[Rfam]
RNA sequence: CGGAGCAGCCGCAGCCCGCAGCCCGCAGAGGACGCCCAGAGCGGCAAGCCCGCGGGCAGACUGACAGACCGACUCGCGCCGCGUCCACCUGUCAGCCCGGCAGUGCGCGCAACGGGAACGCAGCGCGCGCCGAGCAGCCGUGCCCGCCGCCCGGGCCCCGCGCCAGGGCGCACACGCUCCUGCCCCCCCACCCGGCCCGGGCGGGAGUUUGCACCUCUCCCUGCCCGGGUGCUCCUGCCGCCGCUGCAAAGACAACUUUGGAAAAAGUUUUUUGGGGAAGAUUUGGGCUUUGAGGUGCCAAGCCCUGAGCUUUUUGAUUUGGGGGACCUCUUCAGAAAAUGUUGCAAAAAAGCUAAGCCAGCGGGCAGAGGAAAACGCCUGCAGCCGGCGAGUGAAGACGAACCAUCGCCUGCCUGGCGUGUUCCUUUUCCUCUUGGAGGUUGGAGUACCCUGCGCGCCCCCACACGGCUAGACGCCUUGGCUGGUUCGCGACGCAGCCCCCCGGCCGUGGAUGCUCACGCGGGCUCGGGAUCCGCCCAGGUAGCAGUCUCGGACCCUGGUCAUCCCCAGCCCCCCAGCGACGGAGCCGGGGC
Numbered sequence: 001c002g003g004a005g006c007a008g009c010c011g012c013a014g015c016c017c018g019c020a021g022c023c024c025g026c027a028g029a030g031g032a033c034g035c036c037c038a039g040a041g042c043g044g045c046a047a048g049c050c051c052g053c054g055g056g057c058a059g060a061c062u063g064a065c066a067g068a069c070c071g072a073c074u075c076g077c078g079c080c081g082c083g084u085c086c087a088c089c090u091g092u093c094a095g096c097c098c099g100g101c102a103g104u105g106c107g108c109g110c111a112a113c114g115g116g117a118a119c120g121c122a123g124c125g126c127g128c129g130c131c132g133a134g135c136a137g138c139c140g141u142g143c144c145c146g147c148c149g150c151c152c153g154g155g156c157c158c159c160g161c162g163c164c165a166g167g168g169c170g171c172a173c174a175c176g177c178u179c180c181u182g183c184c185c186c187c188c189c190a191c192c193c194g195g196c197c198c199g200g201g202c203g204g205g206a207g208u209u210u211g212c213a214c215c216u217c218u219c220c221c222u223g224c225c226c227g228g229g230u231g232c233u234c235c236u237g238c239c240g241c242c243g244c245u246g247c248a249a250a251g252a253c254a255a256c257u258u259u260g261g262a263a264a265a266a267g268u269u270u271u272u273u274g275g276g277g278a279a280g281a282u283u284u285g286g287g288c289u290u291u292g293a294g295g296u297g298c299c300a301a302g303c304c305c306u307g308a309g310c311u312u313u314u315u316g317a318u319u320u321g322g323g324g325g326a327c328c329u330c331u332u333c334a335g336a337a338a339a340u341g342u343u344g345c346a347a348a349a350a351a352g353c354u355a356a357g358c359c360a361g362c363g364g365g366c367a368g369a370g371g372a373a374a375a376c377g378c379c380u381g382c383a384g385c386c387g388g389c390g391a392g393u394g395a396a397g398a399c400g401a402a403c404c405a406u407c408g409c410c411u412g413c414c415u416g417g418c419g420u421g422u423u424c425c426u427u428u429u430c431c432u433c434u435u436g437g438a439g440g441u442u443g444g445a446g447u448a449c450c451c452u453g454c455g456c457g458c459c460c461c462c463a464c465a466c467g468g469c470u471a472g473a474c475g476c477c478u479u480g481g482c483u484g485g486u487u488c489g490c491g492a493c494g495c496a497g498c499c500c501c502c503c504g505g506c507c508g509u510g511g512a513u514g515c516u517c518a519c520g521c522g523g524g525c526u527c528g529g530g531a532u533c534c535g536c537c538c539a540g541g542u543a544g545c546a547g548u549c550u551c552g553g554a555c556c557c558u559g560g561u562c563a564u565c566c567c568c569a570g571c572c573c574c575c576c577a578g579c580g581a582c583g584g585a586g587c588c589g590g591g592g593c
Stems, first nucleotide, its partner, number of pairs: 002253001005247005011241002014238002018234001020233003025220001027218005033170005039164001041163003048156002052101002054098004067093003071089001075083003106153002109150002113146004118141003121132001123130002173211002176208010187195002255268005275568003295519003302515002305511003309507001314505003322502004327497001344353002357389003361385002365382004370376001392495003397490001399489007406481003410472002412469002418467005423445003427440005446456002449453001523562003528557003532554004539550004573592004578587002

Source information:
Rfam assigns this 593-nucleotide RNA sequence from Cavia porcellus to the family "c-sis internal ribosome entry site (IRES)". The source organism's lineage runs through Eukaryota, Chordata, Theria, Eutheria and Cavia. Pairs were carried over by alignment from the consensus structure, which was predicted with ILM. Rfam's curators write: This family represents the c-sis 5'-UTR which contains three modules that can individually mediate internal ribosome entry. It scores 495 bits against the family's covariance model. Its family is annotated with ribosome binding in the Gene Ontology. For this family Rfam cites "Differentiation-induced internal translation of c-sis mRNA: analysis of the cis elements and their differentiation-linked binding to the hnRNP C protein" (Sella et al., Mol Cell Biol, 1999).